[Rfam]
The family of this 155-nucleotide sequence from Listeria fleischmannii is "Manganese Mn2+ riboswitch aptamer (yybP-ykoY)". The source organism's lineage runs through Bacteria, Bacillati, Bacilli, Listeria and Listeria fleischmannii. A reference for the family is Argaman et al. (2001), "Novel small RNA-encoding genes in the intergenic regions of Escherichia coli", Curr Biol. Gene Ontology term of the family: manganese ion binding. It scores 53 bits against the family's covariance model. Rfam's curators write: This RNA was originally discovered in E. coli during a large scale screen and was named SraF. The family was later found to exist upstream of related families of protein genes in many bacteria, including the the yybP and ykoK genes in B. subtilis. The specific functions of these proteins are unknown, but this structured RNA element may be involved in their genetic regulation as a riboswitch.
RNA sequence: ACAAUAGUCAAAGGGGAGUAGCGCUGGUUUUCGGACCAGGAUAAAAUCGUCAUUACAUGAAUGGAUCAUUCAUCGGUUUUAUUAACAUGUAACAUGUCAGCGAGACCUUUGCCCGUAGUGGGUGAGGUCUCGUUUUUUAUUUACUCGGCUUUGUC
Numbered sequence: 001a002c003a004a005u006a007g008u009c010a011a012a013g014g015g016g017a018g019u020a021g022c023g024c025u026g027g028u029u030u031u032c033g034g035a036c037c038a039g040g041a042u043a044a045a046a047u048c049g050u051c052a053u054u055a056c057a058u059g060a061a062u063g064g065a066u067c068a069u070u071c072a073u074c075g076g077u078u079u080u081a082u083u084a085a086c087a088u089g090u091a092a093c094a095u096g097u098c099a100g101c102g103a104g105a106c107c108u109u110u111g112c113c114c115g116u117a118g119u120g121g122g123u124g125a126g127g128u129c130u131c132g133u134u135u136u137u138u139a140u141u142u143a144c145u146c147g148g149c150u151u152u153g154u155c
Stems, first nucleotide, its partner, number of pairs: 025038003040083010057073007089155001